[Rfam]
RNA sequence: AUAGAGCAUCAAGAGCCGGGAAACCGGCACCAACCUGCCCACUGCGGCGAGGUGGUAGCUCUCAGGGCGAUGCGGCUGAAGCAACCAAGGGGCAAAUC
Numbered sequence: 001a002u003a004g005a006g007c008a009u010c011a012a013g014a015g016c017c018g019g020g021a022a023a024c025c026g027g028c029a030c031c032a033a034c035c036u037g038c039c040c041a042c043u044g045c046g047g048c049g050a051g052g053u054g055g056u057a058g059c060u061c062u063c064a065g066g067g068c069g070a071u072g073c074g075g076c077u078g079a080a081g082c083a084a085c086c087a088a089g090g091g092g093c094a095a096a097u098c
Stems, first nucleotide, its partner, number of pairs: 006073005015028005029056003034052003037048003043092001045090001075082002
RNA: SAM-I/IV (S-adenosyl methionine) riboswitch aptamer